RNA sequence: AACAAUCGAAUACGCAUACCGUAGACAGUAGGUGCUGCUGAAGCUUAAUUUCCUACCGAGGUGUUAUGAUAAUAGUGUUUGUUCAUUUCAAUCAUCAAGAAUGAAAUGUUAAACGGACCAUCAUGGCCUUCGCAAUUGCUGCGGGGGCCUUUCUCAUGCAUCGA
Numbered sequence: 001a002a003c004a005a006u007c008g009a010a011u012a013c014g015c016a017u018a019c020c021g022u023a024g025a026c027a028g029u030a031g032g033u034g035c036u037g038c039u040g041a042a043g044c045u046u047a048a049u050u051u052c053c054u055a056c057c058g059a060g061g062u063g064u065u066a067u068g069a070u071a072a073u074a075g076u077g078u079u080u081g082u083u084c085a086u087u088u089c090a091a092u093c094a095u096c097a098a099g100a101a102u103g104a105a106a107u108g109u110u111a112a113a114c115g116g117a118c119c120a121u122c123a124u125g126g127c128c129u130u131c132g133c134a135a136u137u138g139c140u141g142c143g144g145g146g147g148c149c150u151u152u153c154u155c156a157u158g159c160a161u162c163g164a
Base pairs, nucleotide, nucleotide: 028056029055030054031053032052034044035043036042125149126148127147128146129145130144131143132142133141134140
RNA: Ribosomal protein L10 leader
Organism: Paenibacillus nasutitermitis